[Rfam]
Notes:
A member of the RNA family "SAM riboswitch aptamer (S box leader)" from an Actinomycetales bacterium, 126 nucleotides long. A search with the family's covariance model found it, with a score of 70 bits. Its family is annotated with regulation of gene expression in the Gene Ontology. Clan: SAM clan.

RNA sequence: UGCUCAUCCAGAGGGGUACAGGGACACGGCCCGACGACGCCCCAGCAACCAGCUCCACCGUCCACCCAGGACACCGGAGCCAGGUGCUCAUUCCGUCCCGACCAGAGAGGUCGGGAAAGAUGACCA
Numbered sequence: 001u002g003c004u005c006a007u008c009c010a011g012a013g014g015g016g017u018a019c020a021g022g023g024a025c026a027c028g029g030c031c032c033g034a035c036g037a038c039g040c041c042c043c044a045g046c047a048a049c050c051a052g053c054u055c056c057a058c059c060g061u062c063c064a065c066c067c068a069g070g071a072c073a074c075c076g077g078a079g080c081c082a083g084g085u086g087c088u089c090a091u092u093c094c095g096u097c098c099c100g101a102c103c104a105g106a107g108a109g110g111u112c113g114g115g116a117a118a119g120a121u122g123a124c125c126a
Stems, first nucleotide, its partner, number of pairs: 001126002004123005013043005021032003026096004044088004049084002052080004092118001097115006
Dot-bracket structure: ((.(((((....(((((...(((..[[[[)))......)))))((((.((.((((.....................))))..))))))...(]]]]((((((.......))))))..)))))).))